A member of the RNA family "Eukaryotic large subunit ribosomal RNA" from Ramalina farinacea, 501 nucleotides of a longer RNA. The source organism's lineage runs through Eukaryota, Opisthokonta, saccharomyceta, Ramalinaceae and Ramalina. Its family is annotated with structural constituent of ribosome and ribosome in the Gene Ontology.

[Rfam]
RNA sequence: GCGAAACCACAGCCAAGGGAACGGGCUUGGCAGAAUCAGCGGGGAAAGAAGACCCUGUUGAGCUUGACUCUAGUUUGACAUUGUGAAAAGACAUAGAGGGUGUAGAAUAGGUGGGAGCUUCGGCGCCGGUGAAAUACCACUACCUUUAUCGUUUUUUUACUUAUUCAAUGAAGCGGAACUGGGCUUCACCGCCCAACUUCUAGCGUUAAGGUCCCUCGCGGGCCGAUCCGGGUUGAAGACAUUGUCAGGUGGGGAGUUUGGCUGGGGCGGCACAUCUGUUAAACCAUAACGCAGGUGUCCUAAGGGGGACUCAUGGAGAACAGAAAUCUCCAGUAGAACAAAAGGGUAAAAGUCCCCUUGAUUUUGAUUUUCAGUGUGAAUACAAACCAUGAAAGUGUGGCCUAUCGAUCCUUUAGUCCCUCGAAAUUUGAGGCUAGAGGUGCCAGAAAAGUUACCACAGGGAUCAAAGAUACAGUCGUCCCUGACGAUUUGAUCGGGGGU
Numbered sequence: 001g002c003g004a005a006a007c008c009a010c011a012g013c014c015a016a017g018g019g020a021a022c023g024g025g026c027u028u029g030g031c032a033g034a035a036u037c038a039g040c041g042g043g044g045a046a047a048g049a050a051g052a053c054c055c056u057g058u059u060g061a062g063c064u065u066g067a068c069u070c071u072a073g074u075u076u077g078a079c080a081u082u083g084u085g086a087a088a089a090g091a092c093a094u095a096g097a098g099g100g101u102g103u104a105g106a107a108u109a110g111g112u113g114g115g116a117g118c119u120u121c122g123g124c125g126c127c128g129g130u131g132a133a134a135u136a137c138c139a140c141u142a143c144c145u146u147u148a149u150c151g152u153u154u155u156u157u158u159a160c161u162u163a164u165u166c167a168a169u170g171a172a173g174c175g176g177a178a179c180u181g182g183g184c185u186u187c188a189c190c191g192c193c194c195a196a197c198u199u200c201u202a203g204c205g206u207u208a209a210g211g212u213c214c215c216u217c218g219c220g221g222g223c224c225g226a227u228c229c230g231g232g233u234u235g236a237a238g239a240c241a242u243u244g245u246c247a248g249g250u251g252g253g254g255a256g257u258u259u260g261g262c263u264g265g266g267g268c269g270g271c272a273c274a275u276c277u278g279u280u281a282a283a284c285c286a287u288a289a290c291g292c293a294g295g296u297g298u299c300c301u302a303a304g305g306g307g308g309a310c311u312c313a314u315g316g317a318g319a320a321c322a323g324a325a326a327u328c329u330c331c332a333g334u335a336g337a338a339c340a341a342a343a344g345g346g347u348a349a350a351a352g353u354c355c356c357c358u359u360g361a362u363u364u365u366g367a368u369u370u371u372c373a374g375u376g377u378g379a380a381u382a383c384a385a386a387c388c389a390u391g392a393a394a395g396u397g398u399g400g401c402c403u404a405u406c407g408a409u410c411c412u413u414u415a416g417u418c419c420c421u422c423g424a425a426a427u428u429u430g431a432g433g434c435u436a437g438a439g440g441u442g443c444c445a446g447a448a449a450a451g452u453u454a455c456c457a458c459a460g461g462g463a464u465c466a467a468a469g470a471u472a473c474a475g476u477c478g479u480c481c482c483u484g485a486c487g488a489u490u491u492g493a494u495c496g497g498g499g500g501u
Stems, first nucleotide, its partner, number of pairs: 013030005054461004059457002061453005067257004074249007083160010093149007110141005117124002164237005174230004182193003210224005260273001261271003274296006299400002305357006311337002314332006338347002362386003367381004388397003411439006419433004